Rfam assigns this 182-nucleotide RNA sequence from Nocardioides agri to the family "c-di-AMP riboswitch aptamer (ydaO/yuaA leader)". Rfam links the family to the GO terms cyclic-di-AMP binding and regulation of gene expression.
[Rfam]
RNA sequence: GCGGCCACCGCGCUGAGUCCGGACCAACCGACCCGUCGGGCGGCCCGGAGCCGGGGAACCAUCGGUGCCAGCCUGUCUGGCGCCAGGGGUGAAUCACCGGGGAGGCCACGGCCGAACCGGGGUAGGGCAAAUGUCGUGCCCGAAUCCGUCAGCUCACCCGGUAGGCGUACGACGUACAAGGA
Numbered sequence: 001g002c003g004g005c006c007a008c009c010g011c012g013c014u015g016a017g018u019c020c021g022g023a024c025c026a027a028c029c030g031a032c033c034c035g036u037c038g039g040g041c042g043g044c045c046c047g048g049a050g051c052c053g054g055g056g057a058a059c060c061a062u063c064g065g066u067g068c069c070a071g072c073c074u075g076u077c078u079g080g081c082g083c084c085a086g087g088g089g090u091g092a093a094u095c096a097c098c099g100g101g102g103a104g105g106c107c108a109c110g111g112c113c114g115a116a117c118c119g120g121g122g123u124a125g126g127g128c129a130a131a132u133g134u135c136g137u138g139c140c141c142g143a144a145u146c147c148g149u150c151a152g153c154u155c156a157c158c159c160g161g162u163a164g165g166c167g168u169a170c171g172a173c174g175u176a177c178a179a180g181g182a
Base pairs, nucleotide, nucleotide: 011167012166013165014164018049019048020047021046022045050162051161052160053159054158055157060086087147088146089145095122097120098119099118100117125141126140127139128138